Shown here is a 73-nucleotide RNA sequence from Parambassis ranga, a member of the family "Small nucleolar RNA SNORD19". The family has 22 seed sequences and 1,431 matches in Rfam 15.1. NCBI's taxonomy places the organism under Eukaryota, Opisthokonta, Teleostomi, Osteoglossocephalai, Parambassis. The pairing is the family consensus, mapped onto this sequence. It is annotated as a C/D-box small nucleolar RNA. Clan: SNORD19 clan. On this family, see Huttenhofer et al., EMBO J 2001: "RNomics: an experimental approach that identifies 201 candidates for novel, small, non-messenger RNAs in mouse".
RNA sequence: UGGAAAUGAGGACAAAAUGCAAUGUCUGAUUUCAUUAUGAAGACUUUAAUCCAACUCUGAUCCAAAACACCGC
Numbered sequence: 001u002g003g004a005a006a007u008g009a010g011g012a013c014a015a016a017a018u019g020c021a022a023u024g025u026c027u028g029a030u031u032u033c034a035u036u037a038u039g040a041a042g043a044c045u046u047u048a049a050u051c052c053a054a055c056u057c058u059g060a061u062c063c064a065a066a067a068c069a070c071c072g073c
Base pairs, nucleotide, nucleotide: 001064002063003062004061